RNA sequence: AGACCUUUCUCGGCCUUUUGGCUAAGAUCAAGUGUAGUUUCUGUUCUGAUCAGUUUAAUAUCUGCUCCGUGGUCCAUCAGACCACACGAUAUUAAAUUCAUUUUUCUGGGCCAUGUAGGGGUCAUACGGGUAAGCUUGCUUACUCGACCCCUCCAGUGUUGCCUCUGUAUUUCACUGCAGUGAAGUGCAGCGCAGCUUUA
Numbered sequence: 001a002g003a004c005c006u007u008u009c010u011c012g013g014c015c016u017u018u019u020g021g022c023u024a025a026g027a028u029c030a031a032g033u034g035u036a037g038u039u040u041c042u043g044u045u046c047u048g049a050u051c052a053g054u055u056u057a058a059u060a061u062c063u064g065c066u067c068c069g070u071g072g073u074c075c076a077u078c079a080g081a082c083c084a085c086a087c088g089a090u091a092u093u094a095a096a097u098u099c100a101u102u103u104u105u106c107u108g109g110g111c112c113a114u115g116u117a118g119g120g121g122u123c124a125u126a127c128g129g130g131u132a133a134g135c136u137u138g139c140u141u142a143c144u145c146g147a148c149c150c151c152u153c154c155a156g157u158g159u160u161g162c163c164u165c166u167g168u169a170u171u172u173c174a175c176u177g178c179a180g181u182g183a184a185g186u187g188c189a190g191c192g193c194a195g196c197u198u199u200a
Stems, first nucleotide, its partner, number of pairs: 008027003012023004048067002051064003069085006117152007131142004156193006163185002166182003
About this RNA:
U2 spliceosomal RNA: a 200-nucleotide RNA sequence from Chara braunii. Rfam classes the family as a spliceosomal small nuclear RNA. On this family, see Newby and Greenbaum, RNA 2001: "A conserved pseudouridine modification in eukaryotic U2 snRNA induces a change in branch-site architecture". Taxonomically the source falls in Chara (Eukaryota, Viridiplantae, Streptophytina, Characeae). Rfam describes the family as follows. U2 is a small nuclear RNA (snRNA) component of the spliceosome (involved in pre-mRNA splicing). Complementary binding between U2 snRNA (in an area lying towards the 5' end but 3' to hairpin I) and the branchpoint sequence (BPS) of the intron results the bulging out of an unpaired adenosine, on the BPS, which initiates a nucleophilic attack at the intronic 5' splice site, thus starting the first of two transesterification reactions that mediate splicing.